[Rfam]
RNA sequence: CAGUGUUACAGUUCUUAGUCUAGCAGGCUUUCUGGUUUUUGCCAGAAAGCCCCA
Numbered sequence: 001c002a003g004u005g006u007u008a009c010a011g012u013u014c015u016u017a018g019u020c021u022a023g024c025a026g027g028c029u030u031u032c033u034g035g036u037u038u039u040u041g042c043c044a045g046a047a048a049g050c051c052c053c054a
Base pairs, nucleotide, nucleotide: 026051027050028049029048030047031046032045033044034043035042036041
The family of this 54-nucleotide RNA is "U7 small nuclear RNA". Animal histone pre-mRNAs are spliced by a different mechanism than nuclear pre-mRNAs and self-splicing introns. This processing involves the U7 snRNP, which contains only one RNA species: U7. The 5' end of U7 RNA is thought to base-pair to a conserved spacer element downstream of the cleavage site in histone pre-mRNA. This family contains a number of annotated U7 pseudogenes. Rfam's curators put it in the seed alignment. The base pairs follow the family's consensus structure, which was predicted with PFOLD.